[Rfam]
RNA sequence: GUCUAUCUUCGGGGCGGGGUGUAAUUCCCCACCGGCGGUGAUGAAGGGACACCUUCAAAGCCCGCGAGCCUUCGGGUUGAUUUGGUGAGAAUCCAAAGCCGACAGUAUAGUCUGGAUGGGAGAAGAUGGAG
Numbered sequence: 001g002u003c004u005a006u007c008u009u010c011g012g013g014g015c016g017g018g019g020u021g022u023a024a025u026u027c028c029c030c031a032c033c034g035g036c037g038g039u040g041a042u043g044a045a046g047g048g049a050c051a052c053c054u055u056c057a058a059a060g061c062c063c064g065c066g067a068g069c070c071u072u073c074g075g076g077u078u079g080a081u082u083u084g085g086u087g088a089g090a091a092u093c094c095a096a097a098g099c100c101g102a103c104a105g106u107a108u109a110g111u112c113u114g115g116a117u118g119g120g121a122g123a124a125g126a127u128g129g130a131g
Stems, first nucleotide, its partner, number of pairs: 003129008017029003031111002033101002035065004060099002068077003081097005103114003

The family of this 131-nucleotide RNA sequence from Peribacillus loiseleuriae is "FMN riboswitch aptamer (RFN element)". It scores 122 bits against the family's covariance model.